[Rfam]
RNA sequence: CAACGGACUUAAAGGUACAACUUCACUCAUUUUGAGCCUUUAAAAGGAAACUUUUAAAGUGAAUGCUCUCAAAUUCAGGGAAAUUCAAGAAAGUCAUUUCAUAAUGAACAAUCCUGAGUCAACUUAAAAUUAUUCUUUUAUAAUUUUUAAAGAUGCAGAGACUCGACGGGAGCUAUCCUAACAAAAAUCUAUUCUUGAGUAGUGUUGAGGAUAAAGAGAGAGUCCAGUUUCAAAAUCUGAAA
Numbered sequence: 001c002a003a004c005g006g007a008c009u010u011a012a013a014g015g016u017a018c019a020a021c022u023u024c025a026c027u028c029a030u031u032u033u034g035a036g037c038c039u040u041u042a043a044a045a046g047g048a049a050a051c052u053u054u055u056a057a058a059g060u061g062a063a064u065g066c067u068c069u070c071a072a073a074u075u076c077a078g079g080g081a082a083a084u085u086c087a088a089g090a091a092a093g094u095c096a097u098u099u100c101a102u103a104a105u106g107a108a109c110a111a112u113c114c115u116g117a118g119u120c121a122a123c124u125u126a127a128a129a130u131u132a133u134u135c136u137u138u139u140a141u142a143a144u145u146u147u148u149a150a151a152g153a154u155g156c157a158g159a160g161a162c163u164c165g166a167c168g169g170g171a172g173c174u175a176u177c178c179u180a181a182c183a184a185a186a187a188u189c190u191a192u193u194c195u196u197g198a199g200u201a202g203u204g205u206u207g208a209g210g211a212u213a214a215a216g217a218g219a220g221a222g223u224c225c226a227g228u229u230u231c232a233a234a235a236u237c238u239g240a241a242a
Stems, first nucleotide, its partner, number of pairs: 005039002008036006043054003065173004070168001075117006084108004118154002126146001131142003158225001160224005176211004181206001184203001
RNA: Group I catalytic intron